[Rfam]
RNA sequence: CCACACAGCAUUGUACCCAGAGUGUGGCCUCAGACAUCGCACCUAGAGCUGUAGGCUGGAAUUAAAGUGUUCU
Number, nucleotide and partner (000 for none) at each position: 001c000002c000003a000004c000005a052006c051007a050008g049009c048010a000011u000012u000013g000014u000015a000016c000017c046018c000019a044020g043021a000022g035023u034024g000025u032026g031027g000028c000029c000030u000031c026032a025033g000034a023035c022036a000037u000038c000039g000040c000041a000042c000043c020044u019045a000046g017047a000048g009049c008050u007051g006052u005053a000054g000055g000056c000057u000058g000059g000060a000061a000062u000063u000064a000065a000066a000067g000068u000069g000070u000071u000072c000073u000

The family of this 73-nucleotide sequence from Chrysochloris asiatica is "U1A polyadenylation inhibition element (PIE)". This family represents the U1A polyadenylation inhibition element (PIE). PIE is a regulatory RNA which is responsible for the regulation of the length of the polyA tail of the U1A pre-mRNA. The PIE is located in the U1A mRNA 3' UTR. PIE adopts a U-shaped structure, with binding sites for a single U1A protein at each bend and when complexed with the two proteins it blocks activity of poly(A) polymerase (PAP), and inhibits its activity. Rfam 15.1 lists 510 matches to the family in 331 species. For this family Rfam cites "The NMR structure of the 38 kDa U1A protein - PIE RNA complex reveals the basis of cooperativity in regulation of polyadenylation by human U1A protein" (Varani et al., Nat Struct Biol, 2000). The match comes from Rfam's covariance-model search (70 bits). Lineage of the source: Eukaryota > Vertebrata > Mammalia > Eutheria > Chrysochloris. The family's RNA type in Rfam is cis-regulatory element.